[Rfam]
MIR807 microRNA precursor family: a 177-nucleotide sequence from Oryza sativa. For this family Rfam cites "Rice embryogenic calli express a unique set of microRNAs, suggesting regulatory roles of microRNAs in plant post-embryogenic development" (Luo et al., FEBS Lett, 2006). The source organism's lineage runs through Eukaryota, Streptophyta, Streptophytina, commelinids and Oryza sativa.
RNA sequence: AACCACACUAUCAAUGAAUGGAUUCACCCGUGAGAUGAUGUGACUGUUUCAUCUAGGACGAGGACAUAUCAUCCUAUUACCAGCCAUCGCACGAAAUUAAUAGGGUGCCACAUCCUCAUCCUAGAUGGAACGACCACGUCAUCUCAAAAGGUGAAUCCAUACAUCGACAGUGUAGUU
Numbered sequence: 001a002a003c004c005a006c007a008c009u010a011u012c013a014a015u016g017a018a019u020g021g022a023u024u025c026a027c028c029c030g031u032g033a034g035a036u037g038a039u040g041u042g043a044c045u046g047u048u049u050c051a052u053c054u055a056g057g058a059c060g061a062g063g064a065c066a067u068a069u070c071a072u073c074c075u076a077u078u079a080c081c082a083g084c085c086a087u088c089g090c091a092c093g094a095a096a097u098u099a100a101u102a103g104g105g106u107g108c109c110a111c112a113u114c115c116u117c118a119u120c121c122u123a124g125a126u127g128g129a130a131c132g133a134c135c136a137c138g139u140c141a142u143c144u145c146a147a148a149a150g151g152u153g154a155a156u157c158c159a160u161a162c163a164u165c166g167a168c169a170g171u172g173u174a175g176u177u
Base pairs, nucleotide, nucleotide: 001177002176003175005173006172007171009169011167012166014164015163018160019159021157022156023155024154025153026152027151028150031146032145033144035142036141037140038139039138041136042135045132046131047130048129051126052125054123055122057120058119063114064113070107071106072105073104074103075102076101077100078099079098086097087096
Rfam's curators put it in the seed alignment.